Rfam assigns this 61-nucleotide RNA sequence to the family "pemK RNA".

RNA sequence: AUAAUGAUACUCCAACGAUGGUGUUGCCCGGACGGAUGUCGGGGAGGUGAGAGUCCUGUGA
Numbered sequence: 001a002u003a004a005u006g007a008u009a010c011u012c013c014a015a016c017g018a019u020g021g022u023g024u025u026g027c028c029c030g031g032a033c034g035g036a037u038g039u040c041g042g043g044g045a046g047g048u049g050a051g052a053g054u055c056c057u058g059u060g061a
Base pairs, nucleotide, nucleotide: 012058013026014025015024016023027044028043029042031040032039033038045057046056047055

It is one of the family's seed sequences.